[Rfam]
RNA sequence: AUUUGAAAAAGGCAAAUCCAGUUGAAAAACGGAGACGCAAAGUUACAGGCCUACGGUAAACAAAUUACUAUGGUGGCUGAACCGCUGAA
Numbered sequence: 001a002u003u004u005g006a007a008a009a010a011g012g013c014a015a016a017u018c019c020a021g022u023u024g025a026a027a028a029a030c031g032g033a034g035a036c037g038c039a040a041a042g043u044u045a046c047a048g049g050c051c052u053a054c055g056g057u058a059a060a061c062a063a064a065u066u067a068c069u070a071u072g073g074u075g076g077c078u079g080a081a082c083c084g085c086u087g088a089a
Stems, first nucleotide, its partner, number of pairs: 012038002017033003021030003042082003046079003049074003056068004
RNA: c-di-GMP-I riboswitch aptamer
Organism: Ornithinibacillus caprae